RNA sequence: CCGGCCGCCGGAUGGGGUCGGCUACAAAGUCCAGGAGGCGCUGACCGCUUUUUGGCGUCUCUUGUAUCCAUGUUGCUUCAAAGGAGGAUAUGGCUAUGAGGA
Numbered sequence: 001c002c003g004g005c006c007g008c009c010g011g012a013u014g015g016g017g018u019c020g021g022c023u024a025c026a027a028a029g030u031c032c033a034g035g036a037g038g039c040g041c042u043g044a045c046c047g048c049u050u051u052u053u054g055g056c057g058u059c060u061c062u063u064g065u066a067u068c069c070a071u072g073u074u075g076c077u078u079c080a081a082a083g084g085a086g087g088a089u090a091u092g093g094c095u096a097u098g099a100g101g102a
Stems, first nucleotide, its partner, number of pairs: 001021006008015002036060002039057006061100006068093007076086003
Notes:
This 102-nucleotide sequence from Neorhizobium sp. S3-V5DH belongs to the Rfam family "Repression of heat shock gene expression (ROSE) element". Taxonomically the source falls in Neorhizobium (Bacteria, Pseudomonadota, Alphaproteobacteria, Rhizobiaceae). Rfam describes the family as follows. This family represents a 5' UTR cis-regulatory element found in heat shock mRNAs and is known as the ROSE (repression of heat shock gene expression) element. The ROSE element is a negative regulator of heat shock gene expression. The literature on the family includes a 2001 paper in Nucleic Acids Res by Nocker et al., "A mRNA-based thermosensor controls expression of rhizobial heat shock genes". A search with the family's covariance model found it, with a score of 62 bits. Gene Ontology terms of the family: response to temperature stimulus and regulation of translation. Pairs were carried over by alignment from the consensus structure, which is taken from published work. Rfam classes the family as an RNA thermoregulator.